[Rfam]
RNA sequence: UAGCUGUGAUGGUCCAAGUGGGAGACCCGCUGCAUCCGCCGCGUGUCUGUGGCUCUGGGGCCAUCUCAUCCCCGAAACAGCGAGAGGUGCCUGGUUCGAAUCCCCGGGUCGCGGCAGACUCUCGGCCAAUGGAGCCGAGCCACACUCGGCUGUGUCGGCCGGGGGAGUCUCCUCCCCACACUCGUGCGAGUAAUCCACGAUCUGCUGUGGCGCGCUAAGCCCUGGCCCGGACCCUCGAGGGAAGCGAUUCUGCAGAGAACAGGCCCCCCGGAGAUGGCGGCGCCAGACUACACCCUCGCUGCACAGUGCCCAAGGCGGACUGGCAGGUCGACUUUUUUAUU
Numbered sequence: 001u002a003g004c005u006g007u008g009a010u011g012g013u014c015c016a017a018g019u020g021g022g023a024g025a026c027c028c029g030c031u032g033c034a035u036c037c038g039c040c041g042c043g044u045g046u047c048u049g050u051g052g053c054u055c056u057g058g059g060g061c062c063a064u065c066u067c068a069u070c071c072c073c074g075a076a077a078c079a080g081c082g083a084g085a086g087g088u089g090c091c092u093g094g095u096u097c098g099a100a101u102c103c104c105c106g107g108g109u110c111g112c113g114g115c116a117g118a119c120u121c122u123c124g125g126c127c128a129a130u131g132g133a134g135c136c137g138a139g140c141c142a143c144a145c146u147c148g149g150c151u152g153u154g155u156c157g158g159c160c161g162g163g164g165g166a167g168u169c170u171c172c173u174c175c176c177c178a179c180a181c182u183c184g185u186g187c188g189a190g191u192a193a194u195c196c197a198c199g200a201u202c203u204g205c206u207g208u209g210g211c212g213c214g215c216u217a218a219g220c221c222c223u224g225g226c227c228c229g230g231a232c233c234c235u236c237g238a239g240g241g242a243a244g245c246g247a248u249u250c251u252g253c254a255g256a257g258a259a260c261a262g263g264c265c266c267c268c269c270g271g272a273g274a275u276g277g278c279g280g281c282g283c284c285a286g287a288c289u290a291c292a293c294c295c296u297c298g299c300u301g302c303a304c305a306g307u308g309c310c311c312a313a314g315g316c317g318g319a320c321u322g323g324c325a326g327g328u329c330g331a332c333u334u335u336u337u338u339a340u341u
Stems, first nucleotide, its partner, number of pairs: 003013002016337003020333002024329004029324003035319006043309003051062004078301007086294004091286005096280003100275003104271005172214001174212001176210005182200005188195002215219001224265004229260001234257003241250003
The record is a 341-nucleotide RNA from Paracoccidioides lutzii, which matches "Fungal signal recognition particle RNA" in Rfam. The family has 50 seed sequences and 748 matches in Rfam 15.1. It scores 132 bits against the family's covariance model. Rfam classes the family as a non-coding RNA gene. Its family is annotated with SRP-dependent cotranslational protein targeting to membrane, signal sequence recognition, signal recognition particle, endoplasmic reticulum targeting and signal recognition particle, plasma membrane targeting in the Gene Ontology. The source organism's lineage runs through Eukaryota, Opisthokonta, Dikarya, Pezizomycotina and Paracoccidioides.